RNA sequence: UGGGGGAGCGCAGGAUCCUGGGCUGUGUCCCCUACGCCCUGGGCUCCAGGGCCUGUGCCACUGGAAUUGCGCUCCCAGGGCGGGCAGCCCCCU
Numbered sequence: 001u002g003g004g005g006g007a008g009c010g011c012a013g014g015a016u017c018c019u020g021g022g023c024u025g026u027g028u029c030c031c032c033u034a035c036g037c038c039c040u041g042g043g044c045u046c047c048a049g050g051g052c053c054u055g056u057g058c059c060a061c062u063g064g065a066a067u068u069g070c071g072c073u074c075c076c077a078g079g080g081c082g083g084g085c086a087g088c089c090c091c092c093u
Stems, first nucleotide, its partner, number of pairs: 002092005010085002013081001017079002020075003024071004028065002031063001035057003041053001043052003

Shown here is a 93-nucleotide RNA sequence from Vulpes vulpes, a member of the family "mir-8799 microRNA precursor family". Clan: mir-8791 microRNA precursor clan. Rfam links the family to the GO terms RISC complex and miRNA-mediated post-transcriptional gene silencing.